Rfam assigns this 89-nucleotide RNA sequence from Myripristis murdjan to the family "Small nucleolar RNA SNORD70". For this family Rfam cites "RNomics: an experimental approach that identifies 201 candidates for novel, small, non-messenger RNAs in mouse" (Huttenhofer et al., EMBO J, 2001). Pairs were carried over by alignment from the consensus structure. Gene Ontology terms of the family: RNA processing and nucleolus. By type it is a C/D-box small nucleolar RNA. The source organism's lineage runs through Eukaryota, Actinopteri, Osteoglossocephalai, Holocentriformes and Myripristis. Rfam describes the family as follows. snoRNA HBII-234 belongs to the C/D family of snoRNAs. It is the human orthologue of the mouse MBII-234 and is predicted to guide 2'O-ribose methylation of the small 18S rRNA on position A512. It is hosted, together with HBII-95, by the core C/D box snoRNA protein encoding gene NOP5/NOP58.

[Rfam]
RNA sequence: CGUGUUGUGGUCUGUGAUGUAUCUCUGUGUCUGAUGAAAACAUGAGGUCACUCAGCAGUAUUCGUCACUACCACUGAGACCACAGCCUU
Numbered sequence: 001c002g003u004g005u006u007g008u009g010g011u012c013u014g015u016g017a018u019g020u021a022u023c024u025c026u027g028u029g030u031c032u033g034a035u036g037a038a039a040a041c042a043u044g045a046g047g048u049c050a051c052u053c054a055g056c057a058g059u060a061u062u063c064g065u066c067a068c069u070a071c072c073a074c075u076g077a078g079a080c081c082a083c084a085g086c087c088u089u
Stems, first nucleotide, its partner, number of pairs: 002088001004086009